The record is a 138-nucleotide RNA from Ceratitis capitata, which matches "Small nucleolar RNA psi18S-1377" in Rfam. Pairs were carried over by alignment from the consensus structure, which was predicted with RNAalifold. By type it is an H/ACA-box small nucleolar RNA. A search with the family's covariance model found it, with a score of 52 bits. Gene Ontology terms of the family: RNA processing and nucleolus. Taxonomically the source falls in Ceratitis (Eukaryota, Protostomia, Acalyptratae, Dacinae). Rfam's curators write: psi18S-1377 is a member of the H/ACA class of snoRNA. This family is responsible for guiding the modification of uridines 1377 and 1279 to pseudouridine in Drosophila 18S rRNA.
[Rfam]
RNA sequence: UAGUCCCUGUGUUAUUUGCUGAUUGAUAUAUUAAGAUCAGUGAUUGUCAAAAGGGACACACAUAAACUUCCAAUGUGUCGUUAUUGUCUUUUAAUCGUAUUCUCGACUUCAAGACAUUUCCAUACACUGGAUACAAUA
Numbered sequence: 001u002a003g004u005c006c007c008u009g010u011g012u013u014a015u016u017u018g019c020u021g022a023u024u025g026a027u028a029u030a031u032u033a034a035g036a037u038c039a040g041u042g043a044u045u046g047u048c049a050a051a052a053g054g055g056a057c058a059c060a061c062a063u064a065a066a067c068u069u070c071c072a073a074u075g076u077g078u079c080g081u082u083a084u085u086g087u088c089u090u091u092u093a094a095u096c097g098u099a100u101u102c103u104c105g106a107c108u109u110c111a112a113g114a115c116a117u118u119u120c121c122a123u124a125c126a127c128u129g130g131a132u133a134c135a136a137u138a
Stems, first nucleotide, its partner, number of pairs: 003057005010049002016043007085116005093108001095106002